[Rfam]
RNA sequence: UACAGCAUAGCUGCAAGGGAGUGCUUCGCGCGCGGGCUACAAACGUUU
Numbered sequence: 001u002a003c004a005g006c007a008u009a010g011c012u013g014c015a016a017g018g019g020a021g022u023g024c025u026u027c028g029c030g031c032g033c034g035g036g037c038u039a040c041a042a043a044c045g046u047u048u
Base pairs, nucleotide, nucleotide: 008039009038010037011036012035021033022032023031024030
The family of this 48-nucleotide RNA sequence is "ssnA RNA".